Rfam assigns this 73-nucleotide RNA sequence from Xylanimonas cellulosilytica to the family "tRNA". The organism belongs to Xylanimonas cellulosilytica, within Bacteria. The family's RNA type in Rfam is transfer RNA. A search with the family's covariance model found it, with a score of 65 bits.
[Rfam]
RNA sequence: GUGGCUAUAGCUCAGUUGGCAGAGCGCCUGGUUGUGGUCCAGGAGGUCGCCGGUUCAAGCCCGGUUAGCCACC
Numbered sequence: 001g002u003g004g005c006u007a008u009a010g011c012u013c014a015g016u017u018g019g020c021a022g023a024g025c026g027c028c029u030g031g032u033u034g035u036g037g038u039c040c041a042g043g044a045g046g047u048c049g050c051c052g053g054u055u056c057a058a059g060c061c062c063g064g065u066u067a068g069c070c071a072c073c
Base pairs, nucleotide, nucleotide: 001072002071003070004069005068006067007066010025011024012023013022027043028042029041030040031039049065050064051063052062053061